[Rfam]
RNA: tRNA
RNA sequence: AGGGCUUUAUCUUAAUUUAAAGGGCCUGAGUUGCAUUCAGGAGAUGUAGGUUAAUAUCCUGCAAGUCCUA
Numbered sequence: 001a002g003g004g005c006u007u008u009a010u011c012u013u014a015a016u017u018u019a020a021a022g023g024g025c026c027u028g029a030g031u032u033g034c035a036u037u038c039a040g041g042a043g044a045u046g047u048a049g050g051u052u053a054a055u056a057u058c059c060u061g062c063a064a065g066u067c068c069u070a
Base pairs, nucleotide, nucleotide: 001069002068003067004066005065006064007063010023011022012021013020025041026040027039028038029037046062047061048060049059050058